[Rfam]
RNA sequence: AGAUAUUUACUACUCCGAUCUUCAAGAGCCCAUGGUGGGUUUUUGGAGACGAUAGGGUAUGGAGAGUAAUUUCCAUGCCUGCUGUUUGCAAAGGAGUUCAUAAGUUUUUAUG
Numbered sequence: 001a002g003a004u005a006u007u008u009a010c011u012a013c014u015c016c017g018a019u020c021u022u023c024a025a026g027a028g029c030c031c032a033u034g035g036u037g038g039g040u041u042u043u044u045g046g047a048g049a050c051g052a053u054a055g056g057g058u059a060u061g062g063a064g065a066g067u068a069a070u071u072u073c074c075a076u077g078c079c080u081g082c083u084g085u086u087u088g089c090a091a092a093g094g095a096g097u098u099c100a101u102a103a104g105u106u107u108u109u110a111u112g
Base pairs, nucleotide, nucleotide: 003106006103012097013096014095015094016093019049020048021047022046023045024044025043026042027041028040029039030038031037032036055080056079057078058077059076060075061074062073063072064071065070081089082088
RNA: Molybdenum/Tungsten riboswitch aptamer (Moco RNA motif)
Organism: Maledivibacter halophilus